[Rfam]
RNA sequence: GAAGCGUCAACCCGGCACCGCCCCGGCGGGCAAGACCGGGACCGUCGUCCGGCAACGGACGACUGCG
Numbered sequence: 001g002a003a004g005c006g007u008c009a010a011c012c013c014g015g016c017a018c019c020g021c022c023c024c025g026g027c028g029g030g031c032a033a034g035a036c037c038g039g040g041a042c043c044g045u046c047g048u049c050c051g052g053c054a055a056c057g058g059a060c061g062a063c064u065g066c067g
Stems, first nucleotide, its partner, number of pairs: 011040005018029004044063008